[Rfam]
RNA sequence: GGCUUUCUUUGCGGCGGAGCUCGACCGCCCACACCGGUCUUAGUCGACUUCAUCACCGGCCACAAGGGUGCCUUCGGGGUCGAGCCGAUCUGCCGUGUCCUGUCUGAGUACGGCUGCAAGAUCGCCCCG
Numbered sequence: 001g002g003c004u005u006u007c008u009u010u011g012c013g014g015c016g017g018a019g020c021u022c023g024a025c026c027g028c029c030c031a032c033a034c035c036g037g038u039c040u041u042a043g044u045c046g047a048c049u050u051c052a053u054c055a056c057c058g059g060c061c062a063c064a065a066g067g068g069u070g071c072c073u074u075c076g077g078g079g080u081c082g083a084g085c086c087g088a089u090c091u092g093c094c095g096u097g098u099c100c101u102g103u104c105u106g107a108g109u110a111c112g113g114c115u116g117c118a119a120g121a122u123c124g125c126c127c128c129g
Stems, first nucleotide, its partner, number of pairs: 013029005075129005086124002089121003092117002095114001
RNA: ALIL pseudoknot
Organism: Actinopolymorpha pittospori